[Rfam]
RNA: Bacterial RNase P class A
Organism: Aminomonas paucivorans
RNA sequence: GGAGCAUCCUUCCCAGUCGCUGUCGCCACGGCAGAGGAAAGUCCGGGCUCCGCAGGGCAGGAUGCUGGAGAAAUUCCAGUGGGCGCAAGCCCAAGGAUAGCGCCACAGAAAUCAAACCGCCUACGGGUAAGGGUGAAAAGGUGGGGUAAGGGCCCACCAGCCAACGGGUGACCGUUGGGCUACGGCAAGCCCCAUCCGGAGCAAGAUCGAAUAGGGGAGGAUGAGGCGGCCCGCCGACUCCCGGGUACGAUCGCUCGAUCCCCUUCGCGAGAAGGGGACCAGAGAAAUGACUGGGCACGACAAAACCCGGCUUAUGGGAUGCUCCCCCG
Numbered sequence: 001g002g003a004g005c006a007u008c009c010u011u012c013c014c015a016g017u018c019g020c021u022g023u024c025g026c027c028a029c030g031g032c033a034g035a036g037g038a039a040a041g042u043c044c045g046g047g048c049u050c051c052g053c054a055g056g057g058c059a060g061g062a063u064g065c066u067g068g069a070g071a072a073a074u075u076c077c078a079g080u081g082g083g084c085g086c087a088a089g090c091c092c093a094a095g096g097a098u099a100g101c102g103c104c105a106c107a108g109a110a111a112u113c114a115a116a117c118c119g120c121c122u123a124c125g126g127g128u129a130a131g132g133g134u135g136a137a138a139a140g141g142u143g144g145g146g147u148a149a150g151g152g153c154c155c156a157c158c159a160g161c162c163a164a165c166g167g168g169u170g171a172c173c174g175u176u177g178g179g180c181u182a183c184g185g186c187a188a189g190c191c192c193c194a195u196c197c198g199g200a201g202c203a204a205g206a207u208c209g210a211a212u213a214g215g216g217g218a219g220g221a222u223g224a225g226g227c228g229g230c231c232c233g234c235c236g237a238c239u240c241c242c243g244g245g246u247a248c249g250a251u252c253g254c255u256c257g258a259u260c261c262c263c264u265u266c267g268c269g270a271g272a273a274g275g276g277g278a279c280c281a282g283a284g285a286a287a288u289g290a291c292u293g294g295g296c297a298c299g300a301c302a303a304a305a306c307c308c309g310g311c312u313u314a315u316g317g318g319a320u321g322c323u324c325c326c327c328c329g
Base pairs, nucleotide, nucleotide: 001325002324003323004322005321006320007319008318009317010316012295013294014293015292016291017290018289020034021033022032023031024030025029039313040312041311043310044309045308046307047306048201049200050199051198055232056231057230058229060197061196062195063194064193065079066078067077068076069075080094081092082091083090084089095192096191100190101189102186103185104184117132118131119128120127121126140158141157142156143155144154145153159181161178162177163176164175165174166173167172205252206251207250208249215242216241217240218239219238225235226234227233259278260277261276262275263274264273265272266271